[Rfam]
RNA sequence: CGUGGAGUUUUUCCCAGCUCCGACGGGAUGGCGCUCGUGACUAGGUCCGCCGCCUUGUAUCAUACGAGCGUGUGUAUACCCGUGCGACCCAAGGCGGCGGAACUAGUCACGAGCGCCCUUCCAUCGGAGCUAGGUAGAAUUUCACGA
Numbered sequence: 001c002g003u004g005g006a007g008u009u010u011u012u013c014c015c016a017g018c019u020c021c022g023a024c025g026g027g028a029u030g031g032c033g034c035u036c037g038u039g040a041c042u043a044g045g046u047c048c049g050c051c052g053c054c055u056u057g058u059a060u061c062a063u064a065c066g067a068g069c070g071u072g073u074g075u076a077u078a079c080c081c082g083u084g085c086g087a088c089c090c091a092a093g094g095c096g097g098c099g100g101a102a103c104u105a106g107u108c109a110c111g112a113g114c115g116c117c118c119u120u121c122c123a124u125c126g127g128a129g130c131u132a133g134g135u136a137g138a139a140u141u142u143c144a145c146g147a
Stems, first nucleotide, its partner, number of pairs: 001146002004143002007140005013134002016131008025122004030117015046101002049098009060087002063084004
RNA: MIR3454 microRNA precursor family